RNA sequence: ACUGCAGACCGCCUUAUCGUCCGCCUAGGCGGAAGGAAAGUCCGGACACCACAGAGUAGCAUAACGGGUAACACCCGUCCGUUCGCUCAGGCGAAUGAGGACCAGUGCAACAGAAAGUAUGUACAGUUCGGCUGUAGUGAAACCAGGUAAACUCUAUGCGGUGAAAUGCCAUGUAAAUCAACGUUCCGCCCCGGCGGAUAAGGGCUACUCGUCCGAGGUUGAAGGGUAGGCAGCUCGAUUCAAUGGGUAACUAUUGAACUAGAUAAAUGAUAAGGGUUCGUUUUGGCGAAUACAGAAUCCGGCUUAUAGGUCUGCUUUUUUU
Numbered sequence: 001a002c003u004g005c006a007g008a009c010c011g012c013c014u015u016a017u018c019g020u021c022c023g024c025c026u027a028g029g030c031g032g033a034a035g036g037a038a039a040g041u042c043c044g045g046a047c048a049c050c051a052c053a054g055a056g057u058a059g060c061a062u063a064a065c066g067g068g069u070a071a072c073a074c075c076c077g078u079c080c081g082u083u084c085g086c087u088c089a090g091g092c093g094a095a096u097g098a099g100g101a102c103c104a105g106u107g108c109a110a111c112a113g114a115a116a117g118u119a120u121g122u123a124c125a126g127u128u129c130g131g132c133u134g135u136a137g138u139g140a141a142a143c144c145a146g147g148u149a150a151a152c153u154c155u156a157u158g159c160g161g162u163g164a165a166a167u168g169c170c171a172u173g174u175a176a177a178u179c180a181a182c183g184u185u186c187c188g189c190c191c192c193g194g195c196g197g198a199u200a201a202g203g204g205c206u207a208c209u210c211g212u213c214c215g216a217g218g219u220u221g222a223a224g225g226g227u228a229g230g231c232a233g234c235u236c237g238a239u240u241c242a243a244u245g246g247g248u249a250a251c252u253a254u255u256g257a258a259c260u261a262g263a264u265a266a267a268u269g270a271u272a273a274g275g276g277u278u279c280g281u282u283u284u285g286g287c288g289a290a291u292a293c294a295g296a297a298u299c300c301g302g303c304u305u306a307u308a309g310g311u312c313u314g315c316u317u318u319u320u321u322u
Stems, first nucleotide, its partner, number of pairs: 001318001004315007011307001012275007020033005038305003042302005047163004054210004059159005064078005079099001080097007100154002105152002107148002122136006167232004178222005202214004239258008